[Rfam]
RNA sequence: GGUUUCCGUUGGUGCAAAUCCAAUCACCUCAAUUUGCAAUUUCAAAUGCGAAAGACUUUCCCAUUGGUAGCAAAUAGUUAUCUAUUAAGCAGGGGAUAUCCCA
Numbered sequence: 001g002g003u004u005u006c007c008g009u010u011g012g013u014g015c016a017a018a019u020c021c022a023a024u025c026a027c028c029u030c031a032a033u034u035u036g037c038a039a040u041u042u043c044a045a046a047u048g049c050g051a052a053a054g055a056c057u058u059u060c061c062c063a064u065u066g067g068u069a070g071c072a073a074a075u076a077g078u079u080a081u082c083u084a085u086u087a088a089g090c091a092g093g094g095g096a097u098a099u100c101c102c103a
Base pairs, nucleotide, nucleotide: 009023010022011021012020059094060093061092063085064084066082067081068080069079070078071077
Plastid-rps12 3UTR RNA: a 103-nucleotide sequence from Tamarindus indica.
It is annotated as a cis-regulatory element.
Plastid rpl20 is a non-coding RNA (ncRNA) recognised in plastids.